[Rfam]
RNA sequence: UAUUGUCGCAAGGGGUGUCACAUUCUGUGGCUGAGAGGCAUACGCUAACCCUUUGAACCUGUUCCGUUCACACGGACGUAGGGAUGUGGCGAAAAUGCACG
Numbered sequence: 001u002a003u004u005g006u007c008g009c010a011a012g013g014g015g016u017g018u019c020a021c022a023u024u025c026u027g028u029g030g031c032u033g034a035g036a037g038g039c040a041u042a043c044g045c046u047a048a049c050c051c052u053u054u055g056a057a058c059c060u061g062u063u064c065c066g067u068u069c070a071c072a073c074g075g076a077c078g079u080a081g082g083g084a085u086g087u088g089g090c091g092a093a094a095a096u097g098c099a100c101g
Base pairs, nucleotide, nucleotide: 006089007088008087009086010085011052012051013050014049017031018030019029020028021027038045039044058082059081060080061079063076064075065074066073
A member of the RNA family "TPP riboswitch aptamer (THI element)" from Exiguobacterium chiriqhucha, 101 nucleotides long.